[Rfam]
RNA sequence: GUUUGCCUGUGUGUGGAUGGUGUUCAGCACCAGGGACAGGCGUGUUGGCCUUUGUAUGGAUGGUGUUCAGCACCAGGCACAAGUGUGUUGGUCU
Numbered sequence: 001g002u003u004u005g006c007c008u009g010u011g012u013g014u015g016g017a018u019g020g021u022g023u024u025c026a027g028c029a030c031c032a033g034g035g036a037c038a039g040g041c042g043u044g045u046u047g048g049c050c051u052u053u054g055u056a057u058g059g060a061u062g063g064u065g066u067u068c069a070g071c072a073c074c075a076g077g078c079a080c081a082a083g084u085g086u087g088u089u090g091g092u093c094u
Stems, first nucleotide, its partner, number of pairs: 004085003008081003018075007026067007034055001036053001038051004
RNA: mir-2060 microRNA precursor family